[Rfam]
RNA sequence: UGAGUUGGCGGCUAGGGUUCCGCGUCGGGUUCGACGGUCUGGUCCGAGAGCUGCCGCCCCGCCGGGAGAAAUCCGGCAGGGACACGGCGGGACAAAAUCCCGGGAGAC
Numbered sequence: 001u002g003a004g005u006u007g008g009c010g011g012c013u014a015g016g017g018u019u020c021c022g023c024g025u026c027g028g029g030u031u032c033g034a035c036g037g038u039c040u041g042g043u044c045c046g047a048g049a050g051c052u053g054c055c056g057c058c059c060c061g062c063c064g065g066g067a068g069a070a071a072u073c074c075g076g077c078a079g080g081g082a083c084a085c086g087g088c089g090g091g092a093c094a095a096a097a098u099c100c101c102g103g104g105a106g107a108c
Stems, first nucleotide, its partner, number of pairs: 007055006015045002020042002022039001023036005057081003061077004083103001085106001089101003

Rfam assigns this 108-nucleotide RNA sequence from Hansschlegelia plantiphila to the family "Guanidine-I riboswitch aptamer". It scores 88 bits against the family's covariance model.